[Rfam]
RNA sequence: AGACCAAUGAUGAAUUCAAAAAAUGGAUAUCAUUGGAAUAUGAAAAAAAUGAGUGACAGAAACACUUCUGUGAGCUGAGGUCU
Numbered sequence: 001a002g003a004c005c006a007a008u009g010a011u012g013a014a015u016u017c018a019a020a021a022a023a024u025g026g027a028u029a030u031c032a033u034u035g036g037a038a039u040a041u042g043a044a045a046a047a048a049a050u051g052a053g054u055g056a057c058a059g060a061a062a063c064a065c066u067u068c069u070g071u072g073a074g075c076u077g078a079g080g081u082c083u
Stems, first nucleotide, its partner, number of pairs: 001083005027054002030051001033046002

Record summary:
This 83-nucleotide RNA from Neomonachus schauinslandi belongs to the Rfam family "Small nucleolar RNA SNORD116". The organism belongs to Neomonachus, within Eukaryota.